[Rfam]
RNA sequence: GAGGUCGAGAGGCGCUGCAACGGACCACGGCGGUCCGCCACGCUCGGCCCGACGUCGAACCGCAAGGGCGCCUCCGUGAC
Numbered sequence: 001g002a003g004g005u006c007g008a009g010a011g012g013c014g015c016u017g018c019a020a021c022g023g024a025c026c027a028c029g030g031c032g033g034u035c036c037g038c039c040a041c042g043c044u045c046g047g048c049c050c051g052a053c054g055u056c057g058a059a060c061c062g063c064a065a066g067g068g069c070g071c072c073u074c075c076g077u078g079a080c
Stems, first nucleotide, its partner, number of pairs: 003049006021037006
Dot-bracket structure: ..((((((............((((((.....))))))......))))))...............................